[Rfam]
RNA sequence: CCCGCCGAGGGGCGCUGCAGCGGGCCGUCCGGCCCGUCAGGCUCGGCAGGGCUGCGGUUUCCACGACGCAACGGCGCUCACUUUCA
Numbered sequence: 001c002c003c004g005c006c007g008a009g010g011g012g013c014g015c016u017g018c019a020g021c022g023g024g025c026c027g028u029c030c031g032g033c034c035c036g037u038c039a040g041g042c043u044c045g046g047c048a049g050g051g052c053u054g055c056g057g058u059u060u061c062c063a064c065g066a067c068g069c070a071a072c073g074g075c076g077c078u079c080a081c082u083u084u085c086a
Stems, first nucleotide, its partner, number of pairs: 002049001004047005021036006
RNA: SAH (S-adenosyl-L-homocysteine) riboswitch aptamer